This 168-nucleotide RNA from Firmicutes bacterium CAG:56 belongs to the Rfam family "Clostridiales-1 RNA". Rfam classes the family as a small RNA.
[Rfam]
RNA sequence: UGAUGCCAGGGUCAAAAGGUCUAAAUUCACAUGAGCUUGCUCAUAAGUGGAUGAAAGACCUUGAGACCCGCCCCGAUAUGAGCAUAAAGGUGGGAUGAUAAUCCCACGAUAUGCGAAUACCGGAGAGGAUUGUGGGAGUGCGAUGCACGGAACAAUCCGUAGGCAUCA
Number, nucleotide and partner (000 for none) at each position: 001u168002g167003a166004u165005g164006c163007c162008a000009g000010g068011g067012u066013c065014a000015a000016a062017a061018g060019g059020u058021c057022u056023a000024a000025a000026u051027u050028c049029a048030c047031a044032u043033g042034a041035g040036c000037u000038u000039g000040c035041u034042c033043a032044u031045a000046a000047g030048u029049g028050g027051a026052u000053g000054a000055a000056a022057g021058a020059c019060c018061u017062u016063g000064a000065g013066a012067c011068c010069c000070g000071c000072c000073c123074c122075g121076a000077u119078a118079u117080g000081a000082g114083c113084a112085u111086a000087a000088a000089g000090g107091u106092g105093g104094g103095a102096u101097g000098a000099u000100a000101a096102u095103c094104c093105c092106a091107c090108g000109a000110u000111a085112u084113g083114c082115g000116a000117a079118u078119a077120c000121c075122g074123g073124a000125g000126a000127g158128g157129a156130u155131u154132g153133u152134g000135g000136g000137a000138g148139u147140g146141c145142g000143a000144u000145g141146c140147a139148c138149g000150g000151a000152a133153c132154a131155a130156u129157c128158c127159g000160u000161a000162g007163g006164c005165a004166u003167c002168a001
The family has 194 seed sequences and 1,172 matches in Rfam 15.1.